[Rfam]
RNA sequence: UUCCACAGCUACUGGCCUGAAACUGCUCUGUUACUGUAGCAGUUGCAGUAUUCCCACUGUGGAAGAUCAGCCGUUACACUGUACGGUGCUUUCCUCAAGCAAGGGAAGACAACUGCUGUGUAACAGACAUGC
Numbered sequence: 001u002u003c004c005a006c007a008g009c010u011a012c013u014g015g016c017c018u019g020a021a022a023c024u025g026c027u028c029u030g031u032u033a034c035u036g037u038a039g040c041a042g043u044u045g046c047a048g049u050a051u052u053c054c055c056a057c058u059g060u061g062g063a064a065g066a067u068c069a070g071c072c073g074u075u076a077c078a079c080u081g082u083a084c085g086g087u088g089c090u091u092u093c094c095u096c097a098a099g100c101a102a103g104g105g106a107a108g109a110c111a112a113c114u115g116c117u118g119u120g121u122a123a124c125a126g127a128c129a130u131g132c
Base pairs, nucleotide, nucleotide: 003062004061005060006059017048018047019046021044022043023042024041025040076121077120078119079118087111088110089108090107091106092105093104094103
RNA: Small nucleolar RNA SNORA41